[Rfam]
RNA sequence: GAUCGCAGUGACGACUCGGAAAAUUCAAGCUCAACAGACCGGAAUGCAGGCAUCUCUAUUCAUAGAUUUGUUUGCGUGUCGAUAUUCCCGCUGAACUGAGCGAUC
Numbered sequence: 001g002a003u004c005g006c007a008g009u010g011a012c013g014a015c016u017c018g019g020a021a022a023a024u025u026c027a028a029g030c031u032c033a034a035c036a037g038a039c040c041g042g043a044a045u046g047c048a049g050g051c052a053u054c055u056c057u058a059u060u061c062a063u064a065g066a067u068u069u070g071u072u073u074g075c076g077u078g079u080c081g082a083u084a085u086u087c088c089c090g091c092u093g094a095a096c097u098g099a100g101c102g103a104u105c
Base pairs, nucleotide, nucleotide: 001105002104003103004102005101006100
Dot-bracket structure: ((((((.............................................................................................))))))

The family of this 105-nucleotide RNA sequence from Helianthus annuus is "Small nucleolar RNA Z107/R87". A search with the family's covariance model found it, with a score of 100 bits. The literature on the family includes a 2001 paper in J Mol Biol by Barneche et al., "Identification of 66 box C/D snoRNAs in Arabidopsis thaliana: extensive gene duplications generated multiple isoforms predicting new ribosomal RNA 2'-O-methylation sites". The family has 9 seed sequences and 783 matches in Rfam 15.1.